[Rfam]
RNA sequence: UUCUAGCCCAGAUGGAAACGGCAUCCUUUUUCUUGCUCCUUUAGCAAGGAAAAGAUAGAGUGUACAGCUGGAAAUAGC
Numbered sequence: 001u002u003c004u005a006g007c008c009c010a011g012a013u014g015g016a017a018a019c020g021g022c023a024u025c026c027u028u029u030u031u032c033u034u035g036c037u038c039c040u041u042u043a044g045c046a047a048g049g050a051a052a053a054g055a056u057a058g059a060g061u062g063u064a065c066a067g068c069u070g071g072a073a074a075u076a077g078c
Base pairs, nucleotide, nucleotide: 009070010069011068013066014065018061019060023056024055025054029051030050031049032048033047034046035045036044